Overview:
The family of this 86-nucleotide RNA from Azospira inquinata is "Burkholderia RNA 7 (anti-hemB)". Pairs were carried over by alignment from the consensus structure, which is taken from published work. By type it is a small RNA. For this family Rfam cites "Experimental identification of small non-coding regulatory RNAs in the opportunistic human pathogen Burkholderia cenocepacia J2315" (Ramos et al., Genomics, 2013). NCBI's taxonomy places the organism under Bacteria, Betaproteobacteria, Rhodocyclales, Rhodocyclaceae, Azospira.
RNA sequence: UCUCCCGCUUUACCUCCCUGAGCGGGUGCCUUAAUCACCUUAAGGCAUUUUGCCCCCGGUUACCCCUUUGCCGGGGGCUUUUUUAU
Numbered sequence: 001u002c003u004c005c006c007g008c009u010u011u012a013c014c015u016c017c018c019u020g021a022g023c024g025g026g027u028g029c030c031u032u033a034a035u036c037a038c039c040u041u042a043a044g045g046c047a048u049u050u051u052g053c054c055c056c057c058g059g060u061u062a063c064c065c066c067u068u069u070g071c072c073g074g075g076g077g078c079u080u081u082u083u084u085a086u
Base pairs, nucleotide, nucleotide: 004026005025006024007023008022009021028046029045030044031043032042033041034040052078053077054076055075056074057073058072059071